[Rfam]
RNA sequence: UAUGUACUUAUAUAAGUAUAUCGUAUAUGCUCGACGAUAUGGGUUGAGUGUUUCUACUAGGAGGCCGUAAACAUCCUAACUACGAAUAUAUAGGUGAUUUCU
Numbered sequence: 001u002a003u004g005u006a007c008u009u010a011u012a013u014a015a016g017u018a019u020a021u022c023g024u025a026u027a028u029g030c031u032c033g034a035c036g037a038u039a040u041g042g043g044u045u046g047a048g049u050g051u052u053u054c055u056a057c058u059a060g061g062a063g064g065c066c067g068u069a070a071a072c073a074u075c076c077u078a079a080c081u082a083c084g085a086a087u088a089u090a091u092a093g094g095u096g097a098u099u100u101c102u
Base pairs, nucleotide, nucleotide: 021085022084023083024082025081029049030048031047032046033045034044035043058078059077060076061075062074064072
RNA: Purine riboswitch aptamer